[Rfam]
RNA: MIR168 microRNA precursor family
RNA sequence: CGCCGCGCCGCCUCGGGCUCGCUUGGUGCAGAUCGGGACCCGCCCCCUUCGACACCGGGACGGAUCCCGCCUUGCACCAAGUGAAUCGGAGACGGCGCCGCGA
Numbered sequence: 001c002g003c004c005g006c007g008c009c010g011c012c013u014c015g016g017g018c019u020c021g022c023u024u025g026g027u028g029c030a031g032a033u034c035g036g037g038a039c040c041c042g043c044c045c046c047c048u049u050c051g052a053c054a055c056c057g058g059g060a061c062g063g064a065u066c067c068c069g070c071c072u073u074g075c076a077c078c079a080a081g082u083g084a085a086u087c088g089g090a091g092a093c094g095g096c097g098c099c100g101c102g103a
Stems, first nucleotide, its partner, number of pairs: 013090002017086001019084002023080009034069005040063002